[Rfam]
RNA sequence: GUCGAGAUGGGAGAUGGCAUUCCUCCCUGAAUCGCCGCUUGCAUACGCUGCGGCUGAUGAUGCCUACAGUUCC
Numbered sequence: 001g002u003c004g005a006g007a008u009g010g011g012a013g014a015u016g017g018c019a020u021u022c023c024u025c026c027c028u029g030a031a032u033c034g035c036c037g038c039u040u041g042c043a044u045a046c047g048c049u050g051c052g053g054c055u056g057a058u059g060a061u062g063c064c065u066a067c068a069g070u071u072c073c
Stems, first nucleotide, its partner, number of pairs: 010026004016064006034054004

Overview
The family of this 73-nucleotide RNA sequence from Paraburkholderia saeva is "Fluoride riboswitch aptamer (crcB RNA motif)". Rfam links the family to the GO terms positive regulation of gene expression and response to fluoride. The match comes from Rfam's covariance-model search (49 bits).